[Rfam]
RNA sequence: GCGCUCCCUCGGGGGGGUUCGGGCAUCUCUACCUCAGUGCCGCCAAUCUCAGGUCAGAGAUCCAAACCCUCCGGGGGCGC
Numbered sequence: 001g002c003g004c005u006c007c008c009u010c011g012g013g014g015g016g017g018u019u020c021g022g023g024c025a026u027c028u029c030u031a032c033c034u035c036a037g038u039g040c041c042g043c044c045a046a047u048c049u050c051a052g053g054u055c056a057g058a059g060a061u062c063c064a065a066a067c068c069c070u071c072c073g074g075g076g077g078c079g080c
Stems, first nucleotide, its partner, number of pairs: 003080002006077011018065002021063003026058003031054004036049002

This 80-nucleotide RNA from Simplexvirus humanalpha1 belongs to the Rfam family "mir-H5 microRNA precursor family". The sequence is in the family's curated seed alignment.